[Rfam]
Nucleotides: 090
Stems, first nucleotide, its partner, number of pairs: 005085002008082001010081004020035004037070003040066002044064003050058002
Number, partner (000 for none) and nucleotide at each position: 001000c002000g003000c004000g005085a006084c007000a008082c009000a010081g011080c012079g013078g014000g015000a016000g017000a018000g019000a020035u021034c022033g023032g024000c025000c026000g027000g028000a029000a030000g031000g032023c033022c034021g035020g036000c037070g038069c039068c040066g041065a042000a043000g044064g045063a046062g047000c048000a049000a050058c051057c052000g053000c054000c055000c056000c057051g058050g059000a060000a061000a062046c063045u064044c065041u066040c067000a068039g069038g070037c071000a072000a073000a074000a075000g076000g077000a078013c079012c080011g081010c082008g083000c084006g085005u086000c087000g088000u089000u090000c